Source information:
The record is a 311-nucleotide RNA sequence from Trichomalopsis sarcophagae, which matches "Arthropod 7SK RNA" in Rfam. The family's consensus secondary structure is taken from published work. A reference for the family is Gruber et al. (2008), "Arthropod 7SK RNA", Mol Biol Evol. The family is grouped with related families in Rfam's "7SK clan".

RNA sequence: GGAAGCGUGUGCUAGCAAUGGCGCAACUGAACAUUGAUCGCUGACGGUAUUAUUAUAUAGGUAUGGCAGAUCUGCUCAGGGGUGCAGCGAAAGCUUGGAUUUACGGCUCCCGAUGCGCUCUGCGGGAUAGAUCGAAAUUUCGGUCUAGCCCAACGUGGAGCCCGCACGGUUGAGUCUAUAUACGUCGCUCCUCAAACUACCGCGAUUUUCUUAAUUGGUGGGGGGCGAUAUUUAAAUAUAACUCAUAAACGAGGUAAUUCUUCGCUUCCAUAUACACGGCACUGCAGAUCGCAGUAUGCCCUGUUUUUUUU
Number, nucleotide and partner (000 for none) at each position: 001g269002g268003a267004a266005g265006c264007g263008u000009g000010u000011g000012c000013u000014a000015g088016c000017a000018a000019u087020g000021g000022c000023g000024c000025a000026a000027c079028u078029g077030a000031a000032c074033a073034u000035u000036g072037a071038u070039c069040g067041c066042u065043g064044a000045c061046g000047g000048u000049a000050u000051u000052a000053u000054u000055a000056u000057a000058u000059a000060g000061g045062u000063a000064u043065g042066g041067c040068a000069g039070a038071u037072c036073u033074g032075c000076u000077c029078a028079g027080g000081g000082g000083u000084g000085c000086a000087g019088c015089g000090a000091a000092a000093g000094c000095u000096u000097g000098g000099a000100u000101u000102u000103a000104c000105g000106g000107c000108u000109c000110c000111c000112g000113a000114u000115g000116c000117g000118c000119u000120c000121u000122g000123c000124g000125g000126g000127a000128u000129a000130g000131a000132u000133c000134g000135a000136a000137a000138u000139u000140u000141c000142g000143g000144u000145c000146u000147a000148g000149c000150c000151c000152a000153a000154c000155g000156u000157g000158g000159a000160g000161c000162c000163c000164g000165c000166a000167c000168g000169g000170u000171u000172g000173a000174g000175u000176c000177u000178a000179u000180a000181u000182a000183c000184g000185u000186c000187g000188c000189u000190c000191c000192u000193c000194a000195a000196a000197c000198u000199a000200c000201c000202g000203c000204g000205a000206u000207u000208u000209u000210c000211u000212u000213a000214a000215u000216u000217g000218g000219u000220g000221g000222g000223g000224g000225g000226c000227g000228a000229u000230a000231u000232u000233u000234a000235a000236a000237u000238a000239u000240a000241a000242c000243u000244c000245a000246u000247a000248a000249a000250c000251g000252a000253g000254g000255u000256a000257a000258u000259u000260c000261u000262u000263c007264g006265c005266u004267u003268c002269c001270a000271u000272a000273u000274a000275c000276a000277c000278g300279g299280c298281a295282c294283u293284g292285c291286a000287g000288a000289u000290c000291g285292c284293a283294g282295u281296a000297u000298g280299c279300c278301c000302u000303g000304u000305u000306u000307u000308u000309u000310u000311u000
The organism belongs to Trichomalopsis, within Eukaryota. It scores 98 bits against the family's covariance model.